Source information: This 139-nucleotide RNA from a Pseudonocardiaceae bacterium belongs to the Rfam family "SAM riboswitch aptamer (S box leader)". The literature on the family includes a 2004 paper in Nucleic Acids Res by Rodionov et al., "Comparative genomics of the methionine metabolism in Gram-positive bacteria: a variety of regulatory systems". It scores 73 bits against the family's covariance model. Taxonomically the source falls in Pseudonocardiaceae (Bacteria, Bacillati, Actinomycetota, Actinomycetes). From the family's description: The SAM riboswitch is found upstream of a number of genes which code for proteins involved in methionine or cysteine biosynthesis in Gram-positive bacteria. The SAM riboswitch acts at the level of transcription termination control. The predicted structure consists of a complex stem-loop region followed by a single stem loop terminator region.
RNA sequence: CGCUCAUCCAGAGGGGCAGAGGGAUCGGCCCGAUGAAGCCCCGGCAACCGGCGUUGGCGUACGCCUCGUCGCGAGAUCGCGACGCCCCAGCCAACGAACACGGUGCCAAUUCCGGCCCGACUAGCGGGAAAGAUGGGAA
Numbered sequence: 001c002g003c004u005c006a007u008c009c010a011g012a013g014g015g016g017c018a019g020a021g022g023g024a025u026c027g028g029c030c031c032g033a034u035g036a037a038g039c040c041c042c043g044g045c046a047a048c049c050g051g052c053g054u055u056g057g058c059g060u061a062c063g064c065c066u067c068g069u070c071g072c073g074a075g076a077u078c079g080c081g082a083c084g085c086c087c088c089a090g091c092c093a094a095c096g097a098a099c100a101c102g103g104u105g106c107c108a109a110u111u112c113c114g115g116c117c118c119g120a121c122u123a124g125c126g127g128g129a130a131a132g133a134u135g136g137g138a139a
Stems, first nucleotide, its partner, number of pairs: 003137006013042005021031003025115004043107004048103002050099001111131001116128004
Dot-bracket structure: ..((((((....(((((...(((.[[[[)))......)))))((((.(((................................................)..))))))...(]]]]((((.....))))..)))))))..